[Rfam]
RNA sequence: AGCUAGGAUAGAGGCGCGGUUUUUAAUAGUACUUUUGCGGAGGAAAGCACAAAGAAGCAAAAGGAAAGGAAAAAUCGCCGAAGCGUACAAUCGAUGCUUUAAGAUUGUACAGCUGGUUCUGCAUAGAAUAUAUGCAAAACUGUCACAAGUUUCUUGUGGAGAGCUAUCAUUCAG
Numbered sequence: 001a002g003c004u005a006g007g008a009u010a011g012a013g014g015c016g017c018g019g020u021u022u023u024u025a026a027u028a029g030u031a032c033u034u035u036u037g038c039g040g041a042g043g044a045a046a047g048c049a050c051a052a053a054g055a056a057g058c059a060a061a062a063g064g065a066a067a068g069g070a071a072a073a074a075u076c077g078c079c080g081a082a083g084c085g086u087a088c089a090a091u092c093g094a095u096g097c098u099u100u101a102a103g104a105u106u107g108u109a110c111a112g113c114u115g116g117u118u119c120u121g122c123a124u125a126g127a128a129u130a131u132a133u134g135c136a137a138a139a140c141u142g143u144c145a146c147a148a149g150u151u152u153c154u155u156g157u158g159g160a161g162a163g164c165u166a167u168c169a170u171u172c173a174g
Stems, first nucleotide, its partner, number of pairs: 007168005016078009032063007082114003085110008115141004120136006143159007
A member of the RNA family "Lysine riboswitch aptamer" from Clostridiales bacterium oral taxon 876, 174 nucleotides long. The match comes from Rfam's covariance-model search (126 bits). Rfam describes the family as follows. Riboswitches are metabolite binding domains within certain messenger RNAs that serve as precision sensors for their corresponding targets.